This 52-nucleotide RNA sequence from Palleronia salina belongs to the Rfam family "ffh sRNA". The base pairs follow the family's consensus structure, which is taken from published work. A reference for the family is Meyer et al. (2009), "Identification of candidate structured RNAs in the marine organism 'Candidatus Pelagibacter ubique'", BMC Genomics. Rfam classes the family as a small RNA.

[Rfam]
RNA sequence: UUGCGGGGGGAUCGCCUCCCACCAGCGCGUUGCGCCCGUGGGAGCGUUUGUC
Numbered sequence: 001u002u003g004c005g006g007g008g009g010g011a012u013c014g015c016c017u018c019c020c021a022c023c024a025g026c027g028c029g030u031u032g033c034g035c036c037c038g039u040g041g042g043a044g045c046g047u048u049u050g051u052c
Base pairs, nucleotide, nucleotide: 016044017043018042019041020040021039022038025035026034027033028032
Dot-bracket structure: ...............(((((((..((((...))))..)))))))........